RNA sequence: UACGUUCAUCCCUUUUGGGACGCAAGUAAGCCAGAGGCUGAAGGAACGGGAA
Numbered sequence: 001u002a003c004g005u006u007c008a009u010c011c012c013u014u015u016u017g018g019g020a021c022g023c024a025a026g027u028a029a030g031c032c033a034g035a036g037g038c039u040g041a042a043g044g045a046a047c048g049g050g051a052a
Stems, first nucleotide, its partner, number of pairs: 003048005009020004023049001029039003

A member of the RNA family "Glutamine riboswitch aptamer (glnA leader)", 52 nucleotides long.
The family's consensus secondary structure is taken from published work.
Gene Ontology term of the family: glutamine binding.
It is one of the family's seed sequences.
For this family Rfam cites "Bacterial aptamers that selectively bind glutamine" (Ames and Breaker, RNA Biol, 2011).